[Rfam]
This 192-nucleotide sequence from Klebsiella phage KpF5 belongs to the Rfam family "Gammaproteobacterial sRNA STnc100". Pairs were carried over by alignment from the consensus structure, which was predicted with CMfinder. The organism belongs to Caudoviricetes, within Viruses.
RNA sequence: CCUGAAAGACUGAAUGUUAAAUUUCUGGUGUGGUGAAUCCCCCUAUGCGGAGGGGCGACCAGUCAGUUACAGAACCUGUAAAUGCAGCGCGGGCCAUGCCGACUGGGGCAUGCUCACCGGGAGGCACCCGGCACCACGCAAUGCCACUAAGCUAUUUGGUAGUGGGGUUGUCGUUUCGGCUUCUCCAGCUAU
Numbered sequence: 001c002c003u004g005a006a007a008g009a010c011u012g013a014a015u016g017u018u019a020a021a022u023u024u025c026u027g028g029u030g031u032g033g034u035g036a037a038u039c040c041c042c043c044u045a046u047g048c049g050g051a052g053g054g055g056c057g058a059c060c061a062g063u064c065a066g067u068u069a070c071a072g073a074a075c076c077u078g079u080a081a082a083u084g085c086a087g088c089g090c091g092g093g094c095c096a097u098g099c100c101g102a103c104u105g106g107g108g109c110a111u112g113c114u115c116a117c118c119g120g121g122a123g124g125c126a127c128c129c130g131g132c133a134c135c136a137c138g139c140a141a142u143g144c145c146a147c148u149a150a151g152c153u154a155u156u157u158g159g160u161a162g163u164g165g166g167g168u169u170g171u172c173g174u175u176u177c178g179g180c181u182u183c184u185c186c187a188g189c190u191a192u
Stems, first nucleotide, its partner, number of pairs: 015146002028139008040055005063080001084090002091115004097110002117131005156191001158189001164183006